RNA sequence: GCAUAGCGAUGAUACAAAAGGUGGCUGUUAUAAAUGCAGGAAAUUUUUGUGGAGUAUGUUCGGUUUAAAACCGGUCGACUA
Numbered sequence: 001g002c003a004u005a006g007c008g009a010u011g012a013u014a015c016a017a018a019a020g021g022u023g024g025c026u027g028u029u030a031u032a033a034a035u036g037c038a039g040g041a042a043a044u045u046u047u048u049g050u051g052g053a054g055u056a057u058g059u060u061c062g063g064u065u066u067a068a069a070a071c072c073g074g075u076c077g078a079c080u081a
Base pairs, nucleotide, nucleotide: 014050015049016048018047019046020045021044025039026038027037028036058079059078060077063076065074066073